This 78-nucleotide RNA from Schistosoma mansoni belongs to the Rfam family "mir-3492 microRNA precursor family". The organism belongs to Schistosoma, within Eukaryota. A search with the family's covariance model found it, with a score of 45 bits.
[Rfam]
RNA sequence: AGCUUUUUGAAUUCAUGCCGAUAUUUUGUCAGACACCAACUCAUUAGGAGCGAUGAGACUUCCAAGAUAAGUGAAGUG
Numbered sequence: 001a002g003c004u005u006u007u008u009g010a011a012u013u014c015a016u017g018c019c020g021a022u023a024u025u026u027u028g029u030c031a032g033a034c035a036c037c038a039a040c041u042c043a044u045u046a047g048g049a050g051c052g053a054u055g056a057g058a059c060u061u062c063c064a065a066g067a068u069a070a071g072u073g074a075a076g077u078g
Stems, first nucleotide, its partner, number of pairs: 002077005008071001011068003016064002020061002024058007